[Rfam]
Shown here is a 90-nucleotide RNA sequence from Mesorhizobium sp. ORS 3428, a member of the family "Mesorhizobail RNA 36". The base pairs follow the family's consensus structure, which was predicted with RNAfold. Rfam's curators write: Existence predicted via genome wide comparisons with 4 related strains. Analysed further by deep sequencing and Northern blot under various stress conditions. Strong signals in response to variety of stimuli. The match comes from Rfam's covariance-model search (77 bits). The organism belongs to Mesorhizobium, within Bacteria. The literature on the family includes a 2017 paper in Front Microbiol by Fuli et al., "A Genome-Wide Prediction and Identification of Intergenic Small RNAs by Comparative Analysis in Mesorhizobium huakuii 7653R".
RNA sequence: CAGGAUGGUCUAGGGUUCCGGGAAAGGCAGGGUUCAACCAUGUACAAGGCCGUCGGAUCCCGAGGCUCCCGGGUCAGUCGCGUGCUCUGG
Number, nucleotide and partner (000 for none) at each position: 001c056002a000003g000004g054005a053006u052007g051008g050009u049010c048011u047012a000013g000014g000015g045016u044017u000018c042019c000020g000021g039022g000023a000024a000025a000026g034027g033028c000029a000030g000031g000032g000033u027034u026035c000036a000037a000038c000039c021040a000041u000042g018043u000044a016045c015046a000047a011048g010049g009050c008051c007052g006053u005054c004055g000056g001057a000058u000059c000060c000061c089062g088063a000064g086065g085066c084067u000068c082069c000070c080071g079072g078073g000074u000075c000076a000077g000078u072079c071080g070081c000082g068083u000084g066085c065086u064087c000088u062089g061090g000